[Rfam]
RNA sequence: AGAUGAGAGAAACACCCCGCUCGCAGGGGACUGCGAGCGACUCCAGGCAGGGGCCUCCCCAGUUCCAGCCUGGCCGUGCCUUCGCGCACACCACCGGAGCCUCGAGUUCCGGAAAUCCUCACCGAUCGGA
Number, nucleotide and partner (000 for none) at each position: 001a000002g000003a000004u121005g120006a119007g118008a000009g117010a116011a000012a000013c000014a000015c000016c000017c000018c039019g038020c037021u036022c035023g034024c033025a032026g031027g000028g000029g000030a000031c026032u025033g024034c023035g022036a021037g020038c019039g018040a000041c000042u000043c073044c072045a071046g070047g069048c000049a000050g066051g065052g064053g063054c062055c000056u000057c000058c000059c000060c000061a000062g054063u053064u052065c051066c050067a000068g000069c047070c046071u045072g044073g043074c000075c000076g089077u088078g087079c086080c000081u000082u000083c000084g000085c000086g079087c078088a077089c076090a000091c000092c000093a000094c112095c111096g110097g109098a108099g107100c000101c000102u000103c000104g000105a000106g000107u099108u098109c097110c096111g095112g094113a000114a000115a000116u010117c009118c007119u006120c005121a004122c129123c128124g000125a000126u000127c000128g123129g122130a000
A member of the RNA family "Streptomyces RNA 5676" from Streptomyces beijiangensis, 130 nucleotides long. Pairs were carried over by alignment from the consensus structure. A reference for the family is Vockenhuber et al. (2011), "Deep sequencing-based identification of small non-coding RNAs in Streptomyces coelicolor", RNA Biol. About the family: Identified by deep sequencing of transcriptome at the end of exponential growth phase. Appears longer on northern blot than sequencing transcript. This indicates processing step.